RNA sequence: AAGAUAGAAAUACCCAAUAUCUUGUUCUAGAAAGAUAUUGGGUAUUUCUGUCUUUAUU
Numbered sequence: 001a002a003g004a005u006a007g008a009a010a011u012a013c014c015c016a017a018u019a020u021c022u023u024g025u026u027c028u029a030g031a032a033a034g035a036u037a038u039u040g041g042g043u044a045u046u047u048c049u050g051u052c053u054u055u056a057u058u
Stems, first nucleotide, its partner, number of pairs: 001054014019036005
This 58-nucleotide RNA from Triticum urartu belongs to the Rfam family "Plastid-psbA-3 3UTR RNA".
On this family, see Richter et al., Plant Commun 2023: "Retrograde signaling in plants: A critical review focusing on the GUN pathway and beyond".
The source organism's lineage runs through Eukaryota, Viridiplantae, Spermatophyta, Triticodae and Triticum.
By type it is a cis-regulatory element.
It scores 51 bits against the family's covariance model.